[Rfam]
RNA sequence: AACGCCUGUUGUCGAUCACUACCCCUCCCCUGGUGUGAUCAACCGGAAGGCAACCGGUCCUCCCCAACCGGCCUUCCCCGGCCCCGCAGUCCCCCCUGGCUGCGGGGCUUUUUC
Numbered sequence: 001a002a003c004g005c006c007u008g009u010u011g012u013c014g015a016u017c018a019c020u021a022c023c024c025c026u027c028c029c030c031u032g033g034u035g036u037g038a039u040c041a042a043c044c045g046g047a048a049g050g051c052a053a054c055c056g057g058u059c060c061u062c063c064c065c066a067a068c069c070g071g072c073c074u075u076c077c078c079c080g081g082c083c084c085c086g087c088a089g090u091c092c093c094c095c096c097u098g099g100c101u102g103c104g105g106g107g108c109u110u111u112u113u114c
Stems, first nucleotide, its partner, number of pairs: 004013001006011001014040006021034003045077007055070004080109008089100003